[Rfam]
Nucleotides: 050
Base pairs, nucleotide, nucleotide: 001039002038008034009033011032012029013028018048019047020046021045
Number, partner (000 for none) and nucleotide at each position: 001039g002038a003000a004000c005000u006000a007000g008034c009033c010000g011032g012029a013028a014000a015000u016000a017000c018048g019047u020046u021045g022000u023000u024000g025000c026000a027000a028013u029012u030000g031000c032011c033009g034008g035000a036000a037000g038002u039001u040000u041000a042000a043000g044000u045021c046020a047019a048018c049000u050000a
The record is a 50-nucleotide RNA sequence from Polerovirus SABYV, which matches "Exoribonuclease-resistant RNA (xrRNA) plant-infecting virus (class 3)" in Rfam.
It is one of the family's seed sequences.
A reference for the family is Steckelberg et al. (2018), "Exoribonuclease-Resistant RNAs Exist within both Coding and Noncoding Subgenomic RNAs", mBio.
It is annotated as a cis-regulatory element.
Exoribonuclease-resistant RNA (xrRNA) plant-infecting virus (class 3) is a ncRNA that was reported in Plant viruses.